[Rfam]
RNA sequence: AUGUACCACAAGGGGAGCCUGUAAUGGCUGAGAGUGAACGAGAAAAGUUCUAACCCUUAGAACCUGUGAGUUAAUGCUUGCGCAGGGAUGUGGAUAGAAACCGAC
Numbered sequence: 001a002u003g004u005a006c007c008a009c010a011a012g013g014g015g016a017g018c019c020u021g022u023a024a025u026g027g028c029u030g031a032g033a034g035u036g037a038a039c040g041a042g043a044a045a046a047g048u049u050c051u052a053a054c055c056c057u058u059a060g061a062a063c064c065u066g067u068g069a070g071u072u073a074a075u076g077c078u079u080g081c082g083c084a085g086g087g088a089u090g091u092g093g094a095u096a097g098a099a100a101c102c103g104a105c
Stems, first nucleotide, its partner, number of pairs: 006093005011057004016051001017028003036050004063086004067080004

Notes: TPP riboswitch aptamer (THI element): a 105-nucleotide sequence from Paenisporosarcina antarctica. Pairs were carried over by alignment from the consensus structure, which is taken from published work.